The record is a 101-nucleotide RNA sequence from Zingiber officinale, which matches "Small nucleolar RNA Z43" in Rfam. NCBI's taxonomy places the organism under Eukaryota, Magnoliopsida, Petrosaviidae, Zingiberales, Zingiber. The family has 7 seed sequences and 859 matches in Rfam 15.1.
RNA sequence: GGGCGAUGACGAUUUAUUACAAGGUCUCGUUCGUCGGAACGGCGGCGCUUGUCGCCGCCUUGACGACCAUCCUGAUAUAUCACCACCCAUAUUCUGAGUCC
Numbered sequence: 001g002g003g004c005g006a007u008g009a010c011g012a013u014u015u016a017u018u019a020c021a022a023g024g025u026c027u028c029g030u031u032c033g034u035c036g037g038a039a040c041g042g043c044g045g046c047g048c049u050u051g052u053c054g055c056c057g058c059c060u061u062g063a064c065g066a067c068c069a070u071c072c073u074g075a076u077a078u079a080u081c082a083c084c085a086c087c088c089a090u091a092u093u094c095u096g097a098g099u100c101c
Stems, first nucleotide, its partner, number of pairs: 001101004044061002
Gene Ontology terms of the family: RNA processing and nucleolus.